[Rfam]
Nucleotides: 096
Base pairs, nucleotide, nucleotide: 010095011094012093013092016090019047020046022042023041024040025039026038027037051068052067053066054065055064070087071086072085073084074083
Number, partner (000 for none) and nucleotide at each position: 001000g002000a003000u004000a005000u006000a007000c008000u009000a010095a011094u012093g013092g014000a015000g016090u017000a018000c019047g020046c021000g022042a023041u024040a025039c026038a027037c028000u029000u030000c031000g032000a033000u034000a035000a036000a037027g038026u039025g040024u041023g042022u043000g044000g045000g046020g047019c048000u049000g050000g051068g052067c053066u054065a055064g056000c057000g058000c059000a060000a061000g062000a063000g064055c065054u066053g067052g068051c069000a070087g071086c072085a073084g074083g075000a076000u077000a078000a079000a080000a081000u082000a083074c084073c085072u086071g087070u088000g089000g090016g091000a092013c093012u094011a095010u096000a
Rfam assigns this 96-nucleotide sequence from Desulfosporosinus sp. Sb-LF to the family "NiCo (Nickel/Cobalt) riboswitch aptamer". The family's consensus secondary structure is taken from published work. It scores 47 bits against the family's covariance model.